Rfam assigns this 65-nucleotide RNA to the family "pemK RNA". Rfam's curators put it in the seed alignment. By type it is a cis-regulatory element.
RNA sequence: AUAAUGAUACUUCCGUAAUUCGCGGCCCGGCCAUAAAGAAGGCGGGGAGGGGUAGUGCCCUAUGA
Numbered sequence: 001a002u003a004a005u006g007a008u009a010c011u012u013c014c015g016u017a018a019u020u021c022g023c024g025g026c027c028c029g030g031c032c033a034u035a036a037a038g039a040a041g042g043c044g045g046g047g048a049g050g051g052g053u054a055g056u057g058c059c060c061u062a063u064g065a
Base pairs, nucleotide, nucleotide: 012062013025014024015023016022026047027046028045030043031042032041048061049060050059
Dot-bracket structure: ...........(((((.....))))(((.(((........))).)))(((........))))...